[Rfam]
RNA sequence: GCCGAGCUGAGUAACGCCAGCUUGUAACUCGAGUGAGGGCAACAAAGUGGUGGGACAUGGCUUUGGCUUACCAGGUUGGAUUGGUCGUUGCACCAUGCUGGCUUGCCCGCUCCAAGUUGAGAGUCGAAGCAUGGCAUUUGAGCGAAGGCUCGGGUUUCAUGGUUCCUAGACGAGAGGGCACAGCGUGAGGCUGGUUUCACAGAGCAGCGAACACCUCUGGCUCCUGACAGUGGAGGGAUCACAAGCCACUGCACCUCCAUCCCACAAAGCUUGGUAAGCCUAGCCUCUUGAACCAUCACUUUU
Numbered sequence: 001g002c003c004g005a006g007c008u009g010a011g012u013a014a015c016g017c018c019a020g021c022u023u024g025u026a027a028c029u030c031g032a033g034u035g036a037g038g039g040c041a042a043c044a045a046a047g048u049g050g051u052g053g054g055a056c057a058u059g060g061c062u063u064u065g066g067c068u069u070a071c072c073a074g075g076u077u078g079g080a081u082u083g084g085u086c087g088u089u090g091c092a093c094c095a096u097g098c099u100g101g102c103u104u105g106c107c108c109g110c111u112c113c114a115a116g117u118u119g120a121g122a123g124u125c126g127a128a129g130c131a132u133g134g135c136a137u138u139u140g141a142g143c144g145a146a147g148g149c150u151c152g153g154g155u156u157u158c159a160u161g162g163u164u165c166c167u168a169g170a171c172g173a174g175a176g177g178g179c180a181c182a183g184c185g186u187g188a189g190g191c192u193g194g195u196u197u198c199a200c201a202g203a204g205c206a207g208c209g210a211a212c213a214c215c216u217c218u219g220g221c222u223c224c225u226g227a228c229a230g231u232g233g234a235g236g237g238a239u240c241a242c243a244a245g246c247c248a249c250u251g252c253a254c255c256u257c258c259a260u261c262c263c264a265c266a267a268a269g270c271u272u273g274g275u276a277a278g279c280c281u282a283g284c285c286u287c288u289u290g291a292a293c294c295a296u297c298a299c300u301u302u303u
Base pairs, nucleotide, nucleotide: 001040002039003038004023005022006021007020008019009018028037029036030035044302045301046300047299048298049297050296051295052294053293056290057289059286060285061283062282065279068277069276070275071274072273073272074271075270076269077268078263079262082259083258084257087255089253090252099248100247101246102245103244104243105242107237108236110235111234112233113232114231116228117227118226119225121223122222123221124220126165127164128163130161131160132159133158134157136155137154138153139152140151141150142149143148173218174217175216176215177214184209185208186207191202192201193200